[Rfam]
RNA: Tick-borne Flavivirus exoribonuclease-resistant RNA element
RNA sequence: CGACCUACUGCGGCAGCACACACAGUGACGGGAAGUUGGUCGCUCCCGACGCAGUUAGGUCAGAGAAAAUUUUGUGAGACCAA
Dot-bracket structure: .(((((((((((......(((...))).(((((..........))))).)))))).)))))......................